[Rfam]
Nucleotides: 068
Stems, first nucleotide, its partner, number of pairs: 007040001009038002012035001015068007022034003044057005
Number, partner (000 for none) and nucleotide at each position: 001000u002000g003000g004000g005000g006000g007040g008000a009038g010037g011000g012035c013000a014000u015068u016067g017066a018065a019064g020063g021062a022034g023033c024032g025000u026000u027000c028000u029000c030000g031000u032024c033023g034022c035012g036000g037010u038009c039000c040007c041000c042000g043000u044057c045056a046055g047054a048053u049000g050000a051000a052000a053048a054047u055046c056045u057044g058000c059000g060000a061000a062021u063020c064019c065018u066017u067016c068015a